[Rfam]
RNA sequence: GGGGAGCAUUUAAAGUUGAAAUGUUGCCUGAUAUACCCUUCCUAUAACAAGAAAAACUCUCAACUUUUCCUGCUUGUUGUACAUUAGUCAUGUUUGCAAGCCUCCGGAUUAUGAGAUACAUAU
Numbered sequence: 001g002g003g004g005a006g007c008a009u010u011u012a013a014a015g016u017u018g019a020a021a022u023g024u025u026g027c028c029u030g031a032u033a034u035a036c037c038c039u040u041c042c043u044a045u046a047a048c049a050a051g052a053a054a055a056a057c058u059c060u061c062a063a064c065u066u067u068u069c070c071u072g073c074u075u076g077u078u079g080u081a082c083a084u085u086a087g088u089c090a091u092g093u094u095u096g097c098a099a100g101c102c103u104c105c106g107g108a109u110u111a112u113g114a115g116a117u118a119c120a121u122a123u
Stems, first nucleotide, its partner, number of pairs: 001029003005025007058116003072101006079094001
Dot-bracket structure: (((.(((((((.......))))))).)))............................(((...........((((((.(..............).))))))............))).......
A member of the RNA family "Small nucleolar RNA snoR104" from Mikania micrantha, 123 nucleotides long.
It scores 67 bits against the family's covariance model.
Rfam classes the family as an H/ACA-box small nucleolar RNA.
Pairs were carried over by alignment from the consensus structure, which was predicted with WAR.
Lineage of the source: Eukaryota > Mesangiospermae > Pentapetalae > Asteroideae > Mikania.